The record is a 107-nucleotide RNA sequence from Burkholderia glumae, which matches "TPP riboswitch aptamer (THI element)" in Rfam. Pairs were carried over by alignment from the consensus structure, which is taken from published work. A search with the family's covariance model found it, with a score of 65 bits.

RNA sequence: GCGGCCAUCAGGGGGAGCCGGCGUGCCGGCUGAGAGGUUCCGCUCACGGAACGACCCCGGAACCUGAUCCGGAUCAUGCCGGCGUAGGAAUGAGGUCAUCCACGUGU
Numbered sequence: 001g002c003g004g005c006c007a008u009c010a011g012g013g014g015g016a017g018c019c020g021g022c023g024u025g026c027c028g029g030c031u032g033a034g035a036g037g038u039u040c041c042g043c044u045c046a047c048g049g050a051a052c053g054a055c056c057c058c059g060g061a062a063c064c065u066g067a068u069c070c071g072g073a074u075c076a077u078g079c080c081g082g083c084g085u086a087g088g089a090a091u092g093a094g095g096u097c098a099u100c101c102a103c104g105u106g107u
Base pairs, nucleotide, nucleotide: 006095008093009092010091011058012057013056014055017030018029019028020027021026037052038051039050040049041048063088064087065086066085069082070081071080072079